[Rfam]
RNA sequence: UGAACAGAUUAUUGUAUUCGAGUAUAUUCGACUGUAUUCGUGGCGUAAACAUGGGAAUACACUGUUUUUAAACGAAAAGUGAAUCAAUUAACAUAAUAGACUCCU
Numbered sequence: 001u002g003a004a005c006a007g008a009u010u011a012u013u014g015u016a017u018u019c020g021a022g023u024a025u026a027u028u029c030g031a032c033u034g035u036a037u038u039c040g041u042g043g044c045g046u047a048a049a050c051a052u053g054g055g056a057a058u059a060c061a062c063u064g065u066u067u068u069u070a071a072a073c074g075a076a077a078a079g080u081g082a083a084u085c086a087a088u089u090a091a092c093a094u095a096a097u098a099g100a101c102u103c104c105u
Stems, first nucleotide, its partner, number of pairs: 002104001004102001009099007017091002030089002033086002036084006044074003047067005053062001

MIR6152 microRNA precursor family: a 105-nucleotide RNA sequence from Nicotiana sylvestris. Rfam 15.1 lists 5,807 matches to the family in 3 species. Its family is annotated with RISC complex and miRNA-mediated post-transcriptional gene silencing in the Gene Ontology. Taxonomically the source falls in Nicotiana (Eukaryota, Gunneridae, Pentapetalae, Nicotianeae).